[Rfam]
Rfam assigns this 67-nucleotide sequence from Sporosarcina pasteurii to the family "Bacillaceae-1 RNA". Rfam classes the family as a small RNA. The family's consensus secondary structure is taken from published work.
RNA sequence: GAUAAAGGAAGGCAUCCUAGGGGCGCCGCGUCCUGCGGCAACGGAUGCAUGACCUACAUCCUGUAGG
Numbered sequence: 001g002a003u004a005a006a007g008g009a010a011g012g013c014a015u016c017c018u019a020g021g022g023g024c025g026c027c028g029c030g031u032c033c034u035g036c037g038g039c040a041a042c043g044g045a046u047g048c049a050u051g052a053c054c055u056a057c058a059u060c061c062u063g064u065a066g067g
Stems, first nucleotide, its partner, number of pairs: 012048006025039005053067005